[Rfam]
RNA sequence: GUCUUCUCAUUGAGCUCCUUUCUGUCAGCUGGUGACAGUUUAUGGAUUCGCACGAGAAGAAGAGACAGUUCACAGAACUGACAUUCUGUGACCUUCUGGUUUUUCUGAGGGUAUAUUGGGCUGUUCUGUGAGACAUUU
Numbered sequence: 001g002u003c004u005u006c007u008c009a010u011u012g013a014g015c016u017c018c019u020u021u022c023u024g025u026c027a028g029c030u031g032g033u034g035a036c037a038g039u040u041u042a043u044g045g046a047u048u049c050g051c052a053c054g055a056g057a058a059g060a061a062g063a064g065a066c067a068g069u070u071c072a073c074a075g076a077a078c079u080g081a082c083a084u085u086c087u088g089u090g091a092c093c094u095u096c097u098g099g100u101u102u103u104u105c106u107g108a109g110g111g112u113a114u115a116u117u118g119g120g121c122u123g124u125u126c127u128g129u130g131a132g133a134c135a136u137u138u
Stems, first nucleotide, its partner, number of pairs: 003059006014051002016046003022038005070131006093110004098105001
The record is a 138-nucleotide sequence from Dipodomys ordii, which matches "Small nucleolar RNA SNORA75" in Rfam. The family's consensus secondary structure was predicted with PFOLD. About the family: U23 belongs to the H/ACA class of snoRNAs. snoRNAs bind a number of proteins (including dyskerin, Gar1p and Nop10p in the case of the H/ACA class) to form snoRNP complexes. This class are thought to guide the sites of modification of uridines to pseudouridines by forming direct base pairing interactions with substrate RNAs. Targets include ribosomal and spliceosomal RNAs as well as the Trypanosoma spliced leader RNA (SL RNA) as possibly other, still unknown cellular RNAs. Its family is annotated with nucleolus and RNA processing in the Gene Ontology. The literature on the family includes a 2002 paper in Biochimie by Bachellerie et al., "The expanding snoRNA world". It scores 120 bits against the family's covariance model.